RNA sequence: GAAGCAUUAUGAGGAUAAACCUCGAAAUCAUCCGAUUAUUUGUGAAUGGAAAUAUAACCUCCUACUCAUUCUGA
Dot-bracket structure: .....((.(.....................(((..........)....))...............).)).....
Numbered sequence: 001g002a003a004g005c006a007u008u009a010u011g012a013g014g015a016u017a018a019a020c021c022u023c024g025a026a027a028u029c030a031u032c033c034g035a036u037u038a039u040u041u042g043u044g045a046a047u048g049g050a051a052a053u054a055u056a057a058c059c060u061c062c063u064a065c066u067c068a069u070u071c072u073g074a
Stems, first nucleotide, its partner, number of pairs: 006069002009066001031050002033044001